[Rfam]
RNA sequence: GGGGCAUGCUCAGAGCAGAGGGCCUGAGGAAAUGGUUCUUUAGUUCACAACAGAGUCAACAGGAAUUUGGGGUCAUUGUGACAAGGAGAACAAAACCUGUGGCCUUACUAUGAAUAAGCACCCUACAUGC
Numbered sequence: 001g002g003g004g005c006a007u008g009c010u011c012a013g014a015g016c017a018g019a020g021g022g023c024c025u026g027a028g029g030a031a032a033u034g035g036u037u038c039u040u041u042a043g044u045u046c047a048c049a050a051c052a053g054a055g056u057c058a059a060c061a062g063g064a065a066u067u068u069g070g071g072g073u074c075a076u077u078g079u080g081a082c083a084a085g086g087a088g089a090a091c092a093a094a095a096c097c098u099g100u101g102g103c104c105u106u107a108c109u110a111u112g113a114a115u116a117a118g119c120a121c122c123c124u125a126c127a128u129g130c
Base pairs, nucleotide, nucleotide: 002057003056007052008051013046014045015044016043018041019040020039021038022036023035024034070123071122072121073120077116078115079114082112083111085105086104090100091099092098